[Rfam]
RNA sequence: GCAGUGCCAUGGUCGCCUGCAAUAAAAGCUAACAGUUGAAGUAAAAGGCGCAGGAUUCUGCGCCUUUUUU
Numbered sequence: 001g002c003a004g005u006g007c008c009a010u011g012g013u014c015g016c017c018u019g020c021a022a023u024a025a026a027a028g029c030u031a032a033c034a035g036u037u038g039a040a041g042u043a044a045a046a047g048g049c050g051c052a053g054g055a056u057u058c059u060g061c062g063c064c065u066u067u068u069u070u
Base pairs, nucleotide, nucleotide: 002019003018004017006013007012043068044067045066046065047064048063049062050061051060052059053058
Dot-bracket structure: .(((.((....))...))).......................(((((((((((....)))))))))))..